[Rfam]
RNA sequence: AAAAAAAGAAUAUAACUUCCGUAGACAGUGGGUGUCGCAAGACGUAAUAGUUACCUACCGAGGAGUUCCGAUUAUAUAUUGGGUCUUCCUGCGUCUACAAGGAAGACCUUUCUUAUUAAGAAA
Dot-bracket structure: ...........................(((((((((....))).........)))))).......................(((((((((.........)))))))))...............
Numbered sequence: 001a002a003a004a005a006a007a008g009a010a011u012a013u014a015a016c017u018u019c020c021g022u023a024g025a026c027a028g029u030g031g032g033u034g035u036c037g038c039a040a041g042a043c044g045u046a047a048u049a050g051u052u053a054c055c056u057a058c059c060g061a062g063g064a065g066u067u068c069c070g071a072u073u074a075u076a077u078a079u080u081g082g083g084u085c086u087u088c089c090u091g092c093g094u095c096u097a098c099a100a101g102g103a104a105g106a107c108c109u110u111u112c113u114u115a116u117u118a119a120g121a122a123a
Stems, first nucleotide, its partner, number of pairs: 028058006034043003082108009